[Rfam]
RNA sequence: UCCUACGAUGGCAUGGAAUCUCUGAGACCCGAUUAUUCUUAUGAUGGCAGCCAUAGGCAUGUCUCUGAGGAC
Numbered sequence: 001u002c003c004u005a006c007g008a009u010g011g012c013a014u015g016g017a018a019u020c021u022c023u024g025a026g027a028c029c030c031g032a033u034u035a036u037u038c039u040u041a042u043g044a045u046g047g048c049a050g051c052c053a054u055a056g057g058c059a060u061g062u063c064u065c066u067g068a069g070g071a072c
Base pairs, nucleotide, nucleotide: 001071002070003069032042033041